[Rfam]
RNA: DUF3800-VIII RNA
RNA sequence: CGUGUCCUGCGCCGGUCGAAGCCCUGCGUUCCUACGCGGGGUAUUUUCAUAGGCCGCGCGGGACACG
Number, nucleotide and partner (000 for none) at each position: 001c067002g066003u065004g064005u063006c062007c061008u060009g059010c058011g057012c056013c000014g055015g054016u053017c052018g000019a000020a000021g042022c041023c040024c039025u038026g037027c036028g035029u034030u000031c000032c000033u000034a029035c028036g027037c026038g025039g024040g023041g022042u021043a000044u000045u000046u000047u000048c000049a000050u000051a000052g017053g016054c015055c014056g012057c011058g010059c009060g008061g007062g006063a005064c004065a003066c002067g001